[Rfam]
RNA sequence: CUUGGUUACUAGACAUCUUCUCGUAUAGGUGCAGGAAUGGGCUUGCAUGUUUCUACCCGAUCACCGGAAAUGAUUGGACUACGGGUUAUAGCAGCAGCGGA
Dot-bracket structure: ...................((((((...(((((((......)))))))........(((((((.......)))))))..))))))................
Numbered sequence: 001c002u003u004g005g006u007u008a009c010u011a012g013a014c015a016u017c018u019u020c021u022c023g024u025a026u027a028g029g030u031g032c033a034g035g036a037a038u039g040g041g042c043u044u045g046c047a048u049g050u051u052u053c054u055a056c057c058c059g060a061u062c063a064c065c066g067g068a069a070a071u072g073a074u075u076g077g078a079c080u081a082c083g084g085g086u087u088a089u090a091g092c093a094g095c096a097g098c099g100g101a
Stems, first nucleotide, its partner, number of pairs: 020085006029048007057077007